[Rfam]
A member of the RNA family "Fungal signal recognition particle RNA" from Talaromyces marneffei, 265 nucleotides long. The organism belongs to Talaromyces marneffei, within Eukaryota. The base pairs follow the family's consensus structure, which is taken from published work.
RNA sequence: UAUCUGUGACGGAUAACCUAGUGGAAGGAUAGCUGCCGGUCGGUAACCUUGCGUAGGGUAAAACCAGCGGGUGAGUGUGUCUGUUUCGAGUCGUGGAGCGGCGGUUAUAACUCGUUGGAGAACCACGAUUGUUGUACUGCCCUAAGCAAUGAAGAUGACCCCCCAGGGAAGCAAUUCUGCAAGGAACUCUUCACUCUGCGAUGGCGACAGCAGACGGCACCUCCUCGUGUAAGGAAACUGGCCAUUUGGCUAUACAACUACAAUU
Dot-bracket structure: ((((.......))))...(.((((..(.(((((....(((((((..(((......((......))..(((..(((.((((((((((((.(((((((((.(.(((.(((((.((((.((....)))))).)..))))))).)(...)...((((((.....((.....(((....))).....))...)))))))))))))))..))).)))))...))))))).)))....)))..))))))).....))))).)..)))).)..